[Rfam]
RNA: F6 TB sRNA
RNA sequence: CAGGUCGUCCCGCGUUGCAGCCAGACCCCCGACCCGGUUGCAGCGCGGGACACCUU
Numbered sequence: 001c002a003g004g005u006c007g008u009c010c011c012g013c014g015u016u017g018c019a020g021c022c023a024g025a026c027c028c029c030c031g032a033c034c035c036g037g038u039u040g041c042a043g044c045g046c047g048g049g050a051c052a053c054c055u056u
Base pairs, nucleotide, nucleotide: 002055003054004053005052007051008050009049010048011047012046013045014044015043016042017041018040019039020038021037022036